Notes: Small nucleolar RNA SNORD87: a 77-nucleotide RNA sequence from Crocodylus porosus. The family has 10 seed sequences and 539 matches in Rfam 15.1. The organism belongs to Crocodylus, within Eukaryota. On this family, see Gogolevskaya et al., Gene 2002: "U87 RNA, a novel C/D box small nucleolar RNA from mammalian cells".
RNA sequence: GCUGGCAUAAUGAUGAUUUUUUUGCCGUUUACCCAACUGAUAUGUUUGAUGAGUAUCUGUAUAUCUGAGAUGCCAGC
Numbered sequence: 001g002c003u004g005g006c007a008u009a010a011u012g013a014u015g016a017u018u019u020u021u022u023u024g025c026c027g028u029u030u031a032c033c034c035a036a037c038u039g040a041u042a043u044g045u046u047u048g049a050u051g052a053g054u055a056u057c058u059g060u061a062u063a064u065c066u067g068a069g070a071u072g073c074c075a076g077c
Stems, first nucleotide, its partner, number of pairs: 001077007